[Rfam]
Nucleotides: 147
Stems, first nucleotide, its partner, number of pairs: 002080001003078003008073003012069002016066002019063001033061004038056001041055001043053001087140007095131002100129005107119003
Number, partner (000 for none) and nucleotide at each position: 001000a002080u003078g004077g005076c006000u007000u008073c009072g010071c011000a012069u013068u014000c015000c016066u017065a018000a019063g020000a021000a022000u023000u024000u025000u026000c027000a028000c029000a030000g031000g032000u033061u034060g035059c036058u037000u038056a039000c040000a041055a042000a043053a044000u045000u046000u047000u048000u049000u050000c051000a052000u053043u054000g055041u056038u057000u058036g059035g060034c061033a062000g063019c064000g065017u066016g067000u068013a069012a070000a071010g072009u073008g074000a075000a076005g077004c078003c079000a080002g081000a082000a083000a084000a085000u086000u087140g088139u089138u090137c091136c092135u093134c094000u095131c096130g097000c098000u099000a100129u101128c102127c103126a104125g105000u106000g107119u108118u109117a110000c111000c112000c113000u114000c115000u116000a117109u118108g119107g120000u121000g122000c123000a124000u125104u126103u127102g128101g129100a130096c131095g132000u133000u134093g135092g136091g137090g138089a139088a140087c141000u142000a143000c144000a145000u146000u147000a